[Rfam]
RNA sequence: AUUCCUUCUGUCGUGUAUCCCCGGUCAAUGCACCUUUAGAUGCU
Dot-bracket structure: .........((((........))))......(.(.......).)
Numbered sequence: 001a002u003u004c005c006u007u008c009u010g011u012c013g014u015g016u017a018u019c020c021c022c023g024g025u026c027a028a029u030g031c032a033c034c035u036u037u038a039g040a041u042g043c044u
Stems, first nucleotide, its partner, number of pairs: 010025004032044001034042001

Background: Rfam assigns this 44-nucleotide sequence from Pinus parviflora to the family "Plastid-ycf3 group II-D1 intron". The organism belongs to Pinus subgen. Strobus, within Eukaryota. Plastid rpl16 is a non-coding RNA (ncRNA) recognised in plastids.